Annotation
glmS glucosamine-6-phosphate activated ribozyme aptamer: a 216-nucleotide RNA sequence from Paenibacillus graminis. This entry contains a glucosamine-6-phosphate activated ribozyme that is found in the mRNA for GlmS. GlmS is an enzyme that uses fructose-6-phosphate and glutamine to generate glucosamine-6-phosphate. Pairs were carried over by alignment from the consensus structure, which is taken from published work.
RNA sequence: UGGCAACAGCAAGCGCCAGAGCUUGAUCUUGCGCGGGGGAGAAGGGACAGCAGCUGCCCAUAGGGCAGGGCUUGAACGGAUCACGGCAGAUGUAAGCUGACGAGGUGGAGGUGUUCGAAAUGUUCGGCGGGGACCUCCCGGUGAUGCACCAGAGCCGUAAAUGGAAACGGAAAAUGCGAGGGCGACCUUUCACACAACGUUUCUAUGGGUGCAAUC
Numbered sequence: 001u002g003g004c005a006a007c008a009g010c011a012a013g014c015g016c017c018a019g020a021g022c023u024u025g026a027u028c029u030u031g032c033g034c035g036g037g038g039g040a041g042a043a044g045g046g047a048c049a050g051c052a053g054c055u056g057c058c059c060a061u062a063g064g065g066c067a068g069g070g071c072u073u074g075a076a077c078g079g080a081u082c083a084c085g086g087c088a089g090a091u092g093u094a095a096g097c098u099g100a101c102g103a104g105g106u107g108g109a110g111g112u113g114u115u116c117g118a119a120a121u122g123u124u125c126g127g128c129g130g131g132g133a134c135c136u137c138c139c140g141g142u143g144a145u146g147c148a149c150c151a152g153a154g155c156c157g158u159a160a161a162u163g164g165a166a167a168c169g170g171a172a173a174a175u176g177c178g179a180g181g182g183c184g185a186c187c188u189u190u191c192a193c194a195c196a197a198c199g200u201u202u203c204u205a206u207g208g209g210u211g212c213a214a215u216c
Base pairs, nucleotide, nucleotide: 020098021097022096023095024094025093107138108137109136110135111134115127116126117125118124139157140156141155142154143150161206162205163204164203165202166201167200175192176191178189179188180187181186